[Rfam]
RNA: SAM (S-adenosyl methionine) riboswitch aptamer
Organism: Cellulomonas carbonis
RNA sequence: GGUCACGAGGUCCAGCGUCACGCCCUCCGGCGUGCUGGCCGGCAACCGCGCAGACGCGCACGGUGCCCCCGGAGGAAGACCCGCCCGCACCACCCGGUGCGGGAAGUGCGCACC
Numbered sequence: 001g002g003u004c005a006c007g008a009g010g011u012c013c014a015g016c017g018u019c020a021c022g023c024c025c026u027c028c029g030g031c032g033u034g035c036u037g038g039c040c041g042g043c044a045a046c047c048g049c050g051c052a053g054a055c056g057c058g059c060a061c062g063g064u065g066c067c068c069c070c071g072g073a074g075g076a077a078g079a080c081c082c083g084c085c086c087g088c089a090c091c092a093c094c095c096g097g098u099g100c101g102g103g104a105a106g107u108g109c110g111c112a113c114c
Stems, first nucleotide, its partner, number of pairs: 001081004009040001012038005021032002041067003046063003050059002084103008